[Rfam]
RNA sequence: GAGAACAAGAAGAAGCUCCCGCUUCUCGCCUAAGUUAAAUUAACCUCUAGGCUGAUCGAUAAUUUCUGUUGAUUAAAGGCGGGCGUUACUUAUCCCCGCCUUUUUCUUGUCCU
Numbered sequence: 001g002a003g004a005a006c007a008a009g010a011a012g013a014a015g016c017u018c019c020c021g022c023u024u025c026u027c028g029c030c031u032a033a034g035u036u037a038a039a040u041u042a043a044c045c046u047c048u049a050g051g052c053u054g055a056u057c058g059a060u061a062a063u064u065u066c067u068g069u070u071g072a073u074u075a076a077a078g079g080c081g082g083g084c085g086u087u088a089c090u091u092a093u094c095c096c097c098g099c100c101u102u103u104u105u106c107u108u109g110u111c112c113u
Base pairs, nucleotide, nucleotide: 011026012025013024014023015022016021028052029051030050033046034045035043036042078100079099080098081097082096083095085093086092
The record is a 113-nucleotide RNA sequence from Lactobacillus xujianguonis, which matches "Ribosomal protein L20 leader" in Rfam. By type it is a cis-regulatory leader. About the family: This family is a putative r-protein leader autoregulatory structure found in B. subtilis and other low-GC Gram-positive bacteria. It is located in the 5' untranslated regions of mRNAs encoding initiation factor 3 followed by ribosomal proteins L35 and L20 (infC-rpmI-rplT). A Rho-independent transcription terminator structure that is probably involved in regulation is included at the 3' end.